[Rfam]
RNA sequence: UAAUAUUACAAUUAAUACCUUCAUAUAUCCUCGAUAAUAUGGUUCGAGAGUUUCUACCAGGCAACCGUAAAUUGCCUGACUAUGAAGGCAGAUGAUUCUAUU
Numbered sequence: 001u002a003a004u005a006u007u008a009c010a011a012u013u014a015a016u017a018c019c020u021u022c023a024u025a026u027a028u029c030c031u032c033g034a035u036a037a038u039a040u041g042g043u044u045c046g047a048g049a050g051u052u053u054c055u056a057c058c059a060g061g062c063a064a065c066c067g068u069a070a071a072u073u074g075c076c077u078g079a080c081u082a083u084g085a086a087g088g089c090a091g092a093u094g095a096u097u098c099u100a101u102u
Base pairs, nucleotide, nucleotide: 018088019087020086021085022084023083024082025081030048031047032046033045034044058078059077060076061075062074063073064072